[Rfam]
RNA: TUC338
Organism: Macaca mulatta
RNA sequence: UUGAAGGCGUGGAGACUGAAGUCCUCUCUAUAUCCACAGAACAGGUAUGGCACAGGCAGAGGCAGUGCAGCUUUUCCACUGUCCCACCAAUGUGCCUCAGUCCUAUAAGGGGAACACGUUUAGGAUAAGAUGGCUGUUCAGUCUCCAUGCCCUUCAAUUCUUGGCUACU
Numbered sequence: 001u002u003g004a005a006g007g008c009g010u011g012g013a014g015a016c017u018g019a020a021g022u023c024c025u026c027u028c029u030a031u032a033u034c035c036a037c038a039g040a041a042c043a044g045g046u047a048u049g050g051c052a053c054a055g056g057c058a059g060a061g062g063c064a065g066u067g068c069a070g071c072u073u074u075u076c077c078a079c080u081g082u083c084c085c086a087c088c089a090a091u092g093u094g095c096c097u098c099a100g101u102c103c104u105a106u107a108a109g110g111g112g113a114a115c116a117c118g119u120u121u122a123g124g125a126u127a128a129g130a131u132g133g134c135u136g137u138u139c140a141g142u143c144u145c146c147a148u149g150c151c152c153u154u155c156a157a158u159u160c161u162u163g164g165c166u167a168c169u
Base pairs, nucleotide, nucleotide: 002156003155004154006151007150010147011146012145013144014143015142016141017140018139019138020137023133024132025130026129027128029127030126031125033124034123038104039103041101047097050095051094052093053092054091061083062082063081064080065079108121109120110119111117